[Rfam]
RNA sequence: UUGGAAAUGACGAUCCUUUCCCCAGAUGAUCGACUAGGAUUAUACUGUGCGCAAUUGUGAUACCUUCUCACCGGAGGAGGAUUUCAAGCCAGAAAUCUGAUCCAU
Numbered sequence: 001u002u003g004g005a006a007a008u009g010a011c012g013a014u015c016c017u018u019u020c021c022c023c024a025g026a027u028g029a030u031c032g033a034c035u036a037g038g039a040u041u042a043u044a045c046u047g048u049g050c051g052c053a054a055u056u057g058u059g060a061u062a063c064c065u066u067c068u069c070a071c072c073g074g075a076g077g078a079g080g081a082u083u084u085c086a087a088g089c090c091a092g093a094a095a096u097c098u099g100a101u102c103c104a105u
Stems, first nucleotide, its partner, number of pairs: 002104004
This 105-nucleotide sequence from Setaria italica belongs to the Rfam family "Small nucleolar RNA Z103". On this family, see Chen et al., Nucleic Acids Res 2003: "The high diversity of snoRNAs in plants: identification and comparative study of 120 snoRNA genes from Oryza sativa". The source organism's lineage runs through Eukaryota, Magnoliopsida, Mesangiospermae, Panicoideae and Setaria.